This 143-nucleotide RNA from Actinomadura craniellae belongs to the Rfam family "c-di-AMP riboswitch aptamer (ydaO/yuaA leader)". Gene Ontology terms of the family: cyclic-di-AMP binding and regulation of gene expression. The match comes from Rfam's covariance-model search (86 bits).

RNA sequence: GAACGCCUCCCGCCGAGUCCGCAUGCGCGGAGCCGGGGACCCAUGUGCCUUUUCCGGGGUGAAUCGGCCCCUUGACCGGGGCCGUAGGGCGACUUCCACGCCCGAACCCGUCAGCUAACCCGGCAGGCGGAUUGGAAGCCAAG
Dot-bracket structure: ..........((((...(((........)))((((((....(.............)(((.....((((((........))))))..((((.........))))...))).........)))))).))))..............